[Rfam]
RNA sequence: CCUGAACAGGUGCACGCAGACUGGCCCUGCCCUCACUGGGAACCCCCUUCCUCCUGGGUGCCGGACAGAAUUUUGUGCCCUUUUCUGGAGG
Numbered sequence: 001c002c003u004g005a006a007c008a009g010g011u012g013c014a015c016g017c018a019g020a021c022u023g024g025c026c027c028u029g030c031c032c033u034c035a036c037u038g039g040g041a042a043c044c045c046c047c048u049u050c051c052u053c054c055u056g057g058g059u060g061c062c063g064g065a066c067a068g069a070a071u072u073u074u075g076u077g078c079c080c081u082u083u084u085c086u087g088g089a090g091g
Base pairs, nucleotide, nucleotide: 001091002090003089008082009081010080012078013077014076015075016073018071021064022063023062024061025060029059030058031057032056038052039051040050041049042048
A member of the RNA family "mir-1324 microRNA precursor family" from Pongo pygmaeus, 91 nucleotides long. The base pairs follow the family's consensus structure, which was predicted with RNAalifold.